RNA sequence: GUUUAUGGGCGUUCGGUGGAUGCCUGGGUACCAGGGGCCGAGGAAGGACGUUGCGGCCUGCGAUAUGCCUCGGGGAGUCGGCGAGCGGGUGUUGAUCCGAGGGUGUCCGAAUGGGGUAACCUGGCCGGGGUUGUGCCUGGUCGUUCGUGUCUGAAUGUAUAGGGCGCGGAUGGGUACGCGGGGAAGUGAAACAUCUUAGUACCCGUAGGAAGAGAUAUUCCGUGAGUAGUGGUGAGCGAAAGCGGAUGGUGGCCUAAACUGUGCGUGUGUGAGAGUCGUCGGGCGUUGCGCGUGCGGGGUUGUGGGGCGUGGCUGUUGUUCCUCCGACGGGGGGCUGCGUGUUGAUGCUGGGGUAGUCGAAGGGUCUGGGAAGGCCUGCCGGAGAGGGUGAGAGCCCCGUAGGUGAAAUCCUGGUGUUGCGUGUUGGUUGCGUUCCCGAGUAGCACGGGGCUCGUGGAAUCUCGUGUGAAUCUGGCAAGACCACUUGUCAUGGCUGAAUACUCCUGGUGACCGAUAGUGGAUAGUACCGUGAGGGAAUGGUGAAAAGUACCCCGGGAGGGGAGUGAAAUAGUGCCUGAAACCGGGCGCCUACAAU
Numbered sequence: 001g002u003u004u005a006u007g008g009g010c011g012u013u014c015g016g017u018g019g020a021u022g023c024c025u026g027g028g029u030a031c032c033a034g035g036g037g038c039c040g041a042g043g044a045a046g047g048a049c050g051u052u053g054c055g056g057c058c059u060g061c062g063a064u065a066u067g068c069c070u071c072g073g074g075g076a077g078u079c080g081g082c083g084a085g086c087g088g089g090u091g092u093u094g095a096u097c098c099g100a101g102g103g104u105g106u107c108c109g110a111a112u113g114g115g116g117u118a119a120c121c122u123g124g125c126c127g128g129g130g131u132u133g134u135g136c137c138u139g140g141u142c143g144u145u146c147g148u149g150u151c152u153g154a155a156u157g158u159a160u161a162g163g164g165c166g167c168g169g170a171u172g173g174g175u176a177c178g179c180g181g182g183g184a185a186g187u188g189a190a191a192c193a194u195c196u197u198a199g200u201a202c203c204c205g206u207a208g209g210a211a212g213a214g215a216u217a218u219u220c221c222g223u224g225a226g227u228a229g230u231g232g233u234g235a236g237c238g239a240a241a242g243c244g245g246a247u248g249g250u251g252g253c254c255u256a257a258a259c260u261g262u263g264c265g266u267g268u269g270u271g272a273g274a275g276u277c278g279u280c281g282g283g284c285g286u287u288g289c290g291c292g293u294g295c296g297g298g299g300u301u302g303u304g305g306g307g308c309g310u311g312g313c314u315g316u317u318g319u320u321c322c323u324c325c326g327a328c329g330g331g332g333g334g335c336u337g338c339g340u341g342u343u344g345a346u347g348c349u350g351g352g353g354u355a356g357u358c359g360a361a362g363g364g365u366c367u368g369g370g371a372a373g374g375c376c377u378g379c380c381g382g383a384g385a386g387g388g389u390g391a392g393a394g395c396c397c398c399g400u401a402g403g404u405g406a407a408a409u410c411c412u413g414g415u416g417u418u419g420c421g422u423g424u425u426g427g428u429u430g431c432g433u434u435c436c437c438g439a440g441u442a443g444c445a446c447g448g449g450g451c452u453c454g455u456g457g458a459a460u461c462u463c464g465u466g467u468g469a470a471u472c473u474g475g476c477a478a479g480a481c482c483a484c485u486u487g488u489c490a491u492g493g494c495u496g497a498a499u500a501c502u503c504c505u506g507g508u509g510a511c512c513g514a515u516a517g518u519g520g521a522u523a524g525u526a527c528c529g530u531g532a533g534g535g536a537a538u539g540g541u542g543a544a545a546a547g548u549a550c551c552c553c554g555g556g557a558g559g560g561g562a563g564u565g566a567a568a569u570a571g572u573g574c575c576u577g578a579a580a581c582c583g584g585g586c587g588c589c590u591a592c593a594a595u
Stems, first nucleotide, its partner, number of pairs: 007590010022575001023540002027512002029509009038173002046108003049062003068102007077090003113122003123142007144170009177208001178206005188195002218498001219246005229237002251495004259297011304437003309431005343419012356404003362377005380384001386398003443467008474489005527534002550561004
A member of the RNA family "Bacterial large subunit ribosomal RNA" from Actinobaculum sp. 352, 595 nucleotides of a longer RNA. Rfam 15.1 lists 51,934 matches to the family in 10,816 species.